Bacterial RNase P class A: a 347-nucleotide sequence from Eubacterium ventriosum. The family's consensus secondary structure is taken from published work. Rfam describes the family as follows. Ribonuclease P (RNase P) is a ubiquitous endoribonuclease, found in archaea, bacteria and eukarya as well as chloroplasts and mitochondria. Lineage of the source: Bacteria > Bacillota > Eubacteriales > Eubacterium > Eubacterium ventriosum. The family's RNA type in Rfam is ribozyme.
RNA sequence: UGAGUAGAGCAGAUGAUCGCAGCUGCUAUUGCCGAAAGGACGCAGGUGAGGAAAGUCCGGGCUUCAUAGGGCAGGGUGCCGGCUAACGGCCGGUGGAGGUGACUCCCAGGAAAGUGCAACAGAAAUAAAACCGCCAGCUUGCUGGUAAGGAUGAAAUGGUAGUGUAAGAGACUACCGCUUCGGUGGUAACAUCGAGGGUCAGUGUAAACCCCACUUGAAGCAAGACCGAGCAGAAAGCAUAUGGUUGCCCGCCAGCUUUCGGGUAGGUUGCUUGAACAUAUUGGUAACGAUAUGUCUAGAUAGAUGAUCAUCCACGACAUAACCCGGCUUACAGCUUUACUCAUUCA
Numbered sequence: 001u002g003a004g005u006a007g008a009g010c011a012g013a014u015g016a017u018c019g020c021a022g023c024u025g026c027u028a029u030u031g032c033c034g035a036a037a038g039g040a041c042g043c044a045g046g047u048g049a050g051g052a053a054a055g056u057c058c059g060g061g062c063u064u065c066a067u068a069g070g071g072c073a074g075g076g077u078g079c080c081g082g083c084u085a086a087c088g089g090c091c092g093g094u095g096g097a098g099g100u101g102a103c104u105c106c107c108a109g110g111a112a113a114g115u116g117c118a119a120c121a122g123a124a125a126u127a128a129a130a131c132c133g134c135c136a137g138c139u140u141g142c143u144g145g146u147a148a149g150g151a152u153g154a155a156a157u158g159g160u161a162g163u164g165u166a167a168g169a170g171a172c173u174a175c176c177g178c179u180u181c182g183g184u185g186g187u188a189a190c191a192u193c194g195a196g197g198g199u200c201a202g203u204g205u206a207a208a209c210c211c212c213a214c215u216u217g218a219a220g221c222a223a224g225a226c227c228g229a230g231c232a233g234a235a236a237g238c239a240u241a242u243g244g245u246u247g248c249c250c251g252c253c254a255g256c257u258u259u260c261g262g263g264u265a266g267g268u269u270g271c272u273u274g275a276a277c278a279u280a281u282u283g284g285u286a287a288c289g290a291u292a293u294g295u296c297u298a299g300a301u302a303g304a305u306g307a308u309c310a311u312c313c314a315c316g317a318c319a320u321a322a323c324c325c326g327g328c329u330u331a332c333a334g335c336u337u338u339a340c341u342c343a344u345u346c347a
Stems, first nucleotide, its partner, number of pairs: 001343010012312007020048002023045004053330003057327005062220004069250004074216005079093005094108001095106004109211002114209002116205003131150002133146005158176006177200001178197008224269004233260006242254004276295008